This 156-nucleotide part of an RNA from Bodo saltans belongs to the Rfam family "Eukaryotic large subunit ribosomal RNA".
[Rfam]
RNA sequence: GCUUGUGGCGGCCAAGCGUUCAUAGCGACGUCGCUUUUUGAUCCUUCGAUGUCGGCUCUUCCUAACCUAGCGCCGCAGAAGACGCUAAGGGUUGGAUUGUUCACCCACUGACAGGGAACGUGAGCUGGGUUUAGACCGUCGUGAGACAGGUUGGUU
Numbered sequence: 001g002c003u004u005g006u007g008g009c010g011g012c013c014a015a016g017c018g019u020u021c022a023u024a025g026c027g028a029c030g031u032c033g034c035u036u037u038u039u040g041a042u043c044c045u046u047c048g049a050u051g052u053c054g055g056c057u058c059u060u061c062c063u064a065a066c067c068u069a070g071c072g073c074c075g076c077a078g079a080a081g082a083c084g085c086u087a088a089g090g091g092u093u094g095g096a097u098u099g100u101u102c103a104c105c106c107a108c109u110g111a112c113a114g115g116g117a118a119c120g121u122g123a124g125c126u127g128g129g130u131u132u133a134g135a136c137c138g139u140c141g142u143g144a145g146a147c148a149g150g151u152u153g154g155u156u
Stems, first nucleotide, its partner, number of pairs: 001042001003040001005039001007035006016026002053128001054126004058120001059117005066091002069086004074081001093107003097103001134152004138147003
Rfam links the family to the GO terms ribosome and structural constituent of ribosome.